[Rfam]
Record summary
MIR159 microRNA precursor family: a 236-nucleotide sequence from Cocos nucifera.
RNA sequence: AGGAGAAAGAGGGAGCUCCCUUCAGUCCAAGCAUGGAAUGGAAAGGAAGGAAUAGUCUCCCGCAUCAUUCACUCAUUCACAUAGUAGCACAAAACUUCUUCCAUUUCAGUCGGUGAGCUCGAGUAGAGGAGUGGUGCUAUACUUUCUACUGAGUGUUUGAGUGAAUGAGUCGGCAGCUGAUUCCAACCCCAGAACCAUCCGUGAGUGGACUGAAGGAAGCUCUCUCCAACCCAUUU
Numbered sequence: 001a002g003g004a005g006a007a008a009g010a011g012g013g014a015g016c017u018c019c020c021u022u023c024a025g026u027c028c029a030a031g032c033a034u035g036g037a038a039u040g041g042a043a044a045g046g047a048a049g050g051a052a053u054a055g056u057c058u059c060c061c062g063c064a065u066c067a068u069u070c071a072c073u074c075a076u077u078c079a080c081a082u083a084g085u086a087g088c089a090c091a092a093a094a095c096u097u098c099u100u101c102c103a104u105u106u107c108a109g110u111c112g113g114u115g116a117g118c119u120c121g122a123g124u125a126g127a128g129g130a131g132u133g134g135u136g137c138u139a140u141a142c143u144u145u146c147u148a149c150u151g152a153g154u155g156u157u158u159g160a161g162u163g164a165a166u167g168a169g170u171c172g173g174c175a176g177c178u179g180a181u182u183c184c185a186a187c188c189c190c191a192g193a194a195c196c197a198u199c200c201g202u203g204a205g206u207g208g209a210c211u212g213a214a215g216g217a218a219g220c221u222c223u224c225u226c227c228a229a230c231c232c233a234u235u236u
Stems, first nucleotide, its partner, number of pairs: 013222005019216002023212007036199001057176002060173003066167004074159001

Rfam links the family to the GO terms RISC complex and miRNA-mediated post-transcriptional gene silencing. It scores 96 bits against the family's covariance model. The literature on the family includes a 2004 paper in Mol Cell by Jones-Rhoades and Bartel, "Computational identification of plant microRNAs and their targets, including a stress-induced miRNA". NCBI's taxonomy places the organism under Eukaryota, Viridiplantae, Mesangiospermae, commelinids, Cocos.